[Rfam]
RNA: Small nucleolar RNA SNORA14
RNA sequence: CCGCAUUCCAAACCCUCCUGGUGGCUGCCCCCCUGGCCUCCAGGCAUAAGAACGAAUGCCAGAGCGAACCGGUGAUUGAUCCAAAACGCGGAGCUCCCGUCCUGUGGCUCCUCGUUAUUUCACGUCUUCAACAUUU
Numbered sequence: 001c002c003g004c005a006u007u008c009c010a011a012a013c014c015c016u017c018c019u020g021g022u023g024g025c026u027g028c029c030c031c032c033c034u035g036g037c038c039u040c041c042a043g044g045c046a047u048a049a050g051a052a053c054g055a056a057u058g059c060c061a062g063a064g065c066g067a068a069c070c071g072g073u074g075a076u077u078g079a080u081c082c083a084a085a086a087c088g089c090g091g092a093g094c095u096c097c098c099g100u101c102c103u104g105u106g107g108c109u110c111c112u113c114g115u116u117a118u119u120u121c122a123c124g125u126c127u128u129c130a131a132c133a134u135u136u
Stems, first nucleotide, its partner, number of pairs: 003059004007052001009050001016046001017044005023038003063136002071129002074126002085116004090111002093108002097104001